[Rfam]
RNA sequence: AAAAAUAUUUUUUUAAAAUUUAGUUUUGGUCCUUGGUAUUUUGUUUUAGUCCUUGUAAAAUUUAUUCAUAUUGAUUUGGUCCUUGUAAUAUUUAGAAUAUUUGAUUUUAGUCCCUCAAAAUGAAGACUAAAAUGAAUAUUAUAUGGACCAAUUUCAAUAUGAAAUGAUUUUACCAGGAUUAAAACAAAAUACCAAGGACCAAAACCAAAUAUCCAAUAUUUACAAGAC
Dot-bracket structure: .....((..(.((..(.(((..((((((((((((.(((((((((((((.((.(.(((((((...((.((((((..(((((((...((((((............(((((........)))))..............))))))...)))))))...)))))).))...))))))).).)).))))))))))))).))))))))))))..))).)..)).)..))......
Numbered sequence: 001a002a003a004a005a006u007a008u009u010u011u012u013u014u015a016a017a018a019u020u021u022a023g024u025u026u027u028g029g030u031c032c033u034u035g036g037u038a039u040u041u042u043g044u045u046u047u048a049g050u051c052c053u054u055g056u057a058a059a060a061u062u063u064a065u066u067c068a069u070a071u072u073g074a075u076u077u078g079g080u081c082c083u084u085g086u087a088a089u090a091u092u093u094a095g096a097a098u099a100u101u102u103g104a105u106u107u108u109a110g111u112c113c114c115u116c117a118a119a120a121u122g123a124a125g126a127c128u129a130a131a132a133u134g135a136a137u138a139u140u141a142u143a144u145g146g147a148c149c150a151a152u153u154u155c156a157a158u159a160u161g162a163a164a165u166g167a168u169u170u171u172a173c174c175a176g177g178a179u180u181a182a183a184a185c186a187a188a189a190u191a192c193c194a195a196g197g198a199c200c201a202a203a204a205c206c207a208a209a210u211a212u213c214c215a216a217u218a219u220u221u222a223c224a225a226g227a228c
Stems, first nucleotide, its partner, number of pairs: 006222002010218001012216002016212001018210003023205012036192013050178002053175001055173007065163002068160006076151007086141006104121005